[Rfam]
The record is a 37-nucleotide RNA sequence from Cylindrospermum sp. NIES-4074, which matches "CRISPR RNA direct repeat element" in Rfam. Its family is annotated with defense response in the Gene Ontology. It scores 42 bits against the family's covariance model. The source organism's lineage runs through Bacteria, Bacillati, Cyanophyceae, Nostocales and Cylindrospermum.

RNA sequence: CAUGACCAAACCUUUGAUGCCGUAAGGCGUUGAGCAU
Numbered sequence: 001c002a003u004g005a006c007c008a009a010a011c012c013u014u015u016g017a018u019g020c021c022g023u024a025a026g027g028c029g030u031u032g033a034g035c036a037u
Stems, first nucleotide, its partner, number of pairs: 016031006